U12 minor spliceosomal RNA: a 190-nucleotide sequence from Drosophila mojavensis. The organism belongs to mojavensis species complex, within Eukaryota. The family has 62 seed sequences and 2,106 matches in Rfam 15.1. Its family is annotated with U12 snRNP, mRNA branch site recognition and pre-mRNA branch point binding in the Gene Ontology. It is one of the family's seed sequences. By type it is a spliceosomal small nuclear RNA. The pairing is the family consensus, mapped onto this sequence.

RNA sequence: GUGCCAAAACAUAAUGAGUAAGGAAAACCAAUAGGCCUUGCUAAUCGCUUGGCAGCUUGGCUUCUCGGCAGAAGGGACUGCAAGGUCCCUUUGAAGCUCAAUUUUUGAUAGGGCACAGGUCGUCCCCGUGUUCAGAUGCGCAGUGCGGCGGGCCGGCGCCUACUUUGUGUCCGGUUUGCUGUGCUCGCAU
Dot-bracket structure: ...((..(..........)..))...........(((..(.......)..)))..(((.(...............................).))).......................................(((((.(((((((.((((((((((.......))))).))))).))))))))))))
Numbered sequence: 001g002u003g004c005c006a007a008a009a010c011a012u013a014a015u016g017a018g019u020a021a022g023g024a025a026a027a028c029c030a031a032u033a034g035g036c037c038u039u040g041c042u043a044a045u046c047g048c049u050u051g052g053c054a055g056c057u058u059g060g061c062u063u064c065u066c067g068g069c070a071g072a073a074g075g076g077a078c079u080g081c082a083a084g085g086u087c088c089c090u091u092u093g094a095a096g097c098u099c100a101a102u103u104u105u106u107g108a109u110a111g112g113g114c115a116c117a118g119g120u121c122g123u124c125c126c127c128g129u130g131u132u133c134a135g136a137u138g139c140g141c142a143g144u145g146c147g148g149c150g151g152g153c154c155g156g157c158g159c160c161u162a163c164u165u166u167g168u169g170u171c172c173g174g175u176u177u178g179c180u181g182u183g184c185u186c187g188c189a190u
Stems, first nucleotide, its partner, number of pairs: 004023002008019001035053003040048001056096003060092001136190005142185007150177005155171005